[Rfam]
RNA sequence: UGUGGUGAUAUUCAAAAUAUACAUUUUAUUUUUGGCAAUCAUUUUUCUUUUAUAAAUUCAAAAGUCAUUUUUCUUUCUAAAAACACAAUAAUAUAUAUAUAUAUAUAUAACCAACGUUUGAGUUUUAAAAAAGAAAAAUGAAUUUAUAAGAAAAUGAUUGCCAAAAAGAAAAUGUAUAUUUUGUUAUAUUACCAUAA
Numbered sequence: 001u002g003u004g005g006u007g008a009u010a011u012u013c014a015a016a017a018u019a020u021a022c023a024u025u026u027u028a029u030u031u032u033u034g035g036c037a038a039u040c041a042u043u044u045u046u047c048u049u050u051u052a053u054a055a056a057u058u059c060a061a062a063a064g065u066c067a068u069u070u071u072u073c074u075u076u077c078u079a080a081a082a083a084c085a086c087a088a089u090a091a092u093a094u095a096u097a098u099a100u101a102u103a104u105a106u107a108u109a110a111c112c113a114a115c116g117u118u119u120g121a122g123u124u125u126u127a128a129a130a131a132a133g134a135a136a137a138a139u140g141a142a143u144u145u146a147u148a149a150g151a152a153a154a155u156g157a158u159u160g161c162c163a164a165a166a167a168g169a170a171a172a173u174g175u176a177u178a179u180u181u182u183g184u185u186a187u188a189u190u191a192c193c194a195u196a197a
Stems, first nucleotide, its partner, number of pairs: 003194009013183015029167018050149011